[Rfam]
RNA sequence: CUAUAAAUUAAUAGAUUCACUCAUAUAAUCGCGGGGAUAUGGCCUGCAAGUUUCUACCGGAUUACCGUAAAUGAUCCGACUAUGAGUGAGCAAUGCAGGGGA
Numbered sequence: 001c002u003a004u005a006a007a008u009u010a011a012u013a014g015a016u017u018c019a020c021u022c023a024u025a026u027a028a029u030c031g032c033g034g035g036g037a038u039a040u041g042g043c044c045u046g047c048a049a050g051u052u053u054c055u056a057c058c059g060g061a062u063u064a065c066c067g068u069a070a071a072u073g074a075u076c077c078g079a080c081u082a083u084g085a086g087u088g089a090g091c092a093a094u095g096c097a098g099g100g101g102a
Base pairs, nucleotide, nucleotide: 018088019087020086021085022084023083024082025081029049031047032046033045034044035043058078059077060076061075062074063073064072
Shown here is a 102-nucleotide RNA sequence from Mesobacillus boroniphilus, a member of the family "Purine riboswitch aptamer". A reference for the family is Mandal and Breaker (2004), "Adenine riboswitches and gene activation by disruption of a transcription terminator", Nat Struct Mol Biol. The match comes from Rfam's covariance-model search (91 bits). The base pairs follow the family's consensus structure, which is taken from published work.